[Rfam]
Nucleotides: 146
Base pairs, nucleotide, nucleotide: 004116005115006114007113008112014106015105016104017103023078024077025076026075027074028073029072082098083097084096085095086094087093120141121140122139124137125136126135127134128133
Number, partner (000 for none) and nucleotide at each position: 001000g002000a003000c004116u005115a006114c007113c008112u009000u010000g011000a012000a013000a014106a015105g016104u017103c018000g019000u020000a021000c022000a023078a024077c025076u026075g027074c028073c029072g030000a031000a032000a033000c034000a035000a036000u037000c038000u039000u040000u041000u042000u043000c044000g045000u046000u047000a048000c049000u050000a051000u052000u053000a054000g055000u056000u057000a058000a059000u060000u061000a062000a063000a064000a065000u066000g067000g068000u069000c070000g071000a072029u073028g074027g075026c076025g077024g078023u079000c080000c081000g082098u083097c084096u085095c086094u087093g088000a089000g090000a091000a092000u093087c094086a095085g096084a097083g098082a099000g100000a101000a102000a103017g104016a105015c106014u107000u108000g109000a110000a111000u112008a113007g114006g115005u116004a117000u118000a119000g120141g121140g122139a123000a124137u125136g126135c127134a128133u129000g130000u131000g132000a133128a134127u135126g136125c137124g138000u139122u140121c141120c142000g143000g144000g145000a146000g